[Rfam]
RNA: Singlet oxygen resistance RNA X
RNA sequence: AGCCCUCCCGUAUCGGGGUCAGGAUACGGAAACUCCCUGUUGGCACCUCAAAGGCCCGGCCCUGCGCCGGGCCCUUUUU
Number, nucleotide and partner (000 for none) at each position: 001a000002g000003c000004c000005c000006u000007c000008c029009c028010g027011u026012a025013u024014c023015g000016g000017g000018g000019u000020c000021a000022g000023g014024a013025u012026a011027c010028g009029g008030a000031a000032a000033c000034u000035c000036c000037c000038u000039g000040u000041u000042g000043g000044c000045a000046c000047c000048u000049c000050a000051a000052a000053g073054g072055c071056c070057c069058g068059g067060c066061c000062c000063u000064g000065c000066g060067c059068c058069g057070g056071g055072c054073c053074c000075u000076u000077u000078u000079u000